[Rfam]
Nucleotides: 089
Stems, first nucleotide, its partner, number of pairs: 012037002017032006040083004046078002048074003055068003
Number, partner (000 for none) and nucleotide at each position: 001000u002000a003000c004000a005000g006000a007000a008000a009000a010000a011000g012037g013036c014000a015000a016000a017032c018031c019030u020029a021028u022027u023000g024000a025000a026000a027022a028021a029020u030019a031018g032017g033000g034000a035000c036013g037012c038000a039000a040083a041082g042081c043080c044000g045000a046078g047077g048074g049073u050072c051000u052000a053000a054000g055068g056067u057066a058000u059000g060000a061000g062000a063000u064000u065000u066057u067056a068055c069000u070000a071000u072050g073049a074048u075000g076000g077047c078046c079000g080043g081042g082041u083040u084000a085000c086000c087000u088000g089000g
Description:
Rfam assigns this 89-nucleotide RNA from Bacillus sp. OK048 to the family "c-di-GMP-I riboswitch aptamer". Gene Ontology term of the family: cyclic-di-GMP binding. Lineage of the source: Bacteria > Bacillati > Caryophanales > Bacillaceae > Bacillus. It scores 80 bits against the family's covariance model.